[Rfam]
RNA sequence: CAUCGGCUGCGGGCCCCUCUGGCGGGAUGCUCUCUCAAGAUGCUUCCGUGAUGUCGGAGCCGAUGC
Number, nucleotide and partner (000 for none) at each position: 001c000002a000003u000004c000005g000006g060007c059008u058009g000010c056011g055012g054013g000014c000015c000016c000017c000018u000019c000020u000021g000022g049023c048024g047025g046026g045027a044028u000029g043030c042031u000032c000033u000034c000035u000036c000037a000038a000039g000040a000041u000042g030043c029044u027045u026046c025047c024048g023049u022050g000051a000052u000053g000054u012055c011056g010057g000058a008059g007060c006061c000062g000063a000064u000065g000066c000

The record is a 66-nucleotide sequence from Methylobacterium sp. WL8, which matches "terC RNA" in Rfam. It scores 50 bits against the family's covariance model. Rfam 15.1 lists 1,112 matches to the family in 772 species.